[Rfam]
RNA sequence: GGUUUCCCUUGGUGCAAAUUCAAUCACCUCAAUUCUCGAUUUCAAAACGAGAAAAAAUUCCCCAUUGGCAGUAAAUUGUUGUUAUCCGUUAAGCGGGGAUAAUCAUAU
Numbered sequence: 001g002g003u004u005u006c007c008c009u010u011g012g013u014g015c016a017a018a019u020u021c022a023a024u025c026a027c028c029u030c031a032a033u034u035c036u037c038g039a040u041u042u043c044a045a046a047a048c049g050a051g052a053a054a055a056a057a058u059u060c061c062c063c064a065u066u067g068g069c070a071g072u073a074a075a076u077u078g079u080u081g082u083u084a085u086c087c088g089u090u091a092a093g094c095g096g097g098g099a100u101a102a103u104c105a106u107a108u
Stems, first nucleotide, its partner, number of pairs: 009023004060098004064089002067086002070083003
This 108-nucleotide RNA sequence from Viola websteri belongs to the Rfam family "Plastid-rps12 3UTR RNA".
Rfam describes the family as follows. Plastid rpl20 is a non-coding RNA (ncRNA) recognised in plastids. It was found in the three prime untranslated region (3UTR) of rps12 gene, its 3UTR location sugest a role in transcript maduration.
Lineage of the source: Eukaryota > Tracheophyta > Gunneridae > fabids > Viola subsect. Rostratae.
On this family, see Richter et al., Plant Commun 2023: "Retrograde signaling in plants: A critical review focusing on the GUN pathway and beyond".